Rfam assigns this 145-nucleotide sequence from Acetitomaculum ruminis to the family "Ribosomal protein L10 leader".
The family's consensus secondary structure was predicted with CMfinder.
Rfam classes the family as a cis-regulatory leader.
For this family Rfam cites "Diverse mechanisms for regulating ribosomal protein synthesis in Escherichia coli" (Zengel and Lindahl, Prog Nucleic Acid Res Mol Biol, 1994).

Nucleotides: 145
Base pairs, nucleotide, nucleotide: 028058029057030056031055032054033053034041035040107130108129109128110127111126112125113124114123115122
Number, partner (000 for none) and nucleotide at each position: 001000u002000a003000g004000a005000a006000u007000a008000c009000c010000a011000u012000u013000c014000g015000u016000a017000u018000g019000c020000c021000g022000a023000a024000g025000a026000c027000a028058g029057c030056a031055g032054g033053u034041g035040c036000g037000a038000a039000a040035g041034c042000a043000u044000a045000a046000a047000u048000u049000u050000a051000u052000u053033a054032c055031c056030u057029g058028c059000c060000g061000a062000g063000g064000a065000u066000u067000u068000a069000a070000g071000a072000a073000c074000u075000a076000c077000u078000u079000a080000a081000u082000a083000u084000a085000g086000u087000a088000u089000u090000a091000g092000u093000u094000u095000a096000u097000u098000g099000a100000a101000u102000c103000u104000c105000c106000u107130g108129c109128c110127g111126c112125u113124u114123u115122g116000c117000g118000u119000a120000u121000a122115c123114a124113a125112a126111g127110c128109g129108g130107c131000u132000u133000u134000u135000u136000u137000a138000u139000u140000a141000a142000a143000g144000c145000g